[Rfam]
RNA: DUF3268 RNA
RNA sequence: GGCAAGGGCUUGCGCCCAGGCUUUCGGUACAUCGAAUGAAUUCACGGUGUUAGACCUUUCCCCGCGGGAGAGGGAACCGUUACGGAUUUAGCGCACUGAGCAAUCCACAAUGGUGCAGGCC
Numbered sequence: 001g002g003c004a005a006g007g008g009c010u011u012g013c014g015c016c017c018a019g020g021c022u023u024u025c026g027g028u029a030c031a032u033c034g035a036a037u038g039a040a041u042u043c044a045c046g047g048u049g050u051u052a053g054a055c056c057u058u059u060c061c062c063c064g065c066g067g068g069a070g071a072g073g074g075a076a077c078c079g080u081u082a083c084g085g086a087u088u089u090a091g092c093g094c095a096c097u098g099a100g101c102a103a104u105c106c107a108c109a110a111u112g113g114u115g116c117a118g119g120c121c
Stems, first nucleotide, its partner, number of pairs: 007121010025079004029050006055073003059069004084106003089103001091101002